[Rfam]
RNA sequence: UGAUACCAGGGUCAAAAGGUCGGAAAUCUGACGCAAGCUUGCUUGCAGGAAGAUUUCUGAACUUUUGACCCGCCAAAAAACAUGAGUAAGUAGCCAUUUUUCGAAGAAAAAUGAGCGGAUUGCGAAUGUUUUUGUGGAUUGUGAGAGUACGAAGUACAGAACAAUCCGGUAUCA
Numbered sequence: 001u002g003a004u005a006c007c008a009g010g011g012u013c014a015a016a017a018g019g020u021c022g023g024a025a026a027u028c029u030g031a032c033g034c035a036a037g038c039u040u041g042c043u044u045g046c047a048g049g050a051a052g053a054u055u056u057c058u059g060a061a062c063u064u065u066u067g068a069c070c071c072g073c074c075a076a077a078a079a080a081c082a083u084g085a086g087u088a089a090g091u092a093g094c095c096a097u098u099u100u101u102c103g104a105a106g107a108a109a110a111a112u113g114a115g116c117g118g119a120u121u122g123c124g125a126a127u128g129u130u131u132u133u134g135u136g137g138a139u140u141g142u143g144a145g146a147g148u149a150c151g152a153a154g155u156a157c158a159g160a161a162c163a164a165u166c167c168g169g170u171a172u173c174a
Stems, first nucleotide, its partner, number of pairs: 001174007010070004017063002020060010032048001033046005076133008086123004093116002095113008136167007147157004
Description:
Shown here is a 174-nucleotide RNA from Blautia faecicola, a member of the family "Clostridiales-1 RNA". A search with the family's covariance model found it, with a score of 134 bits.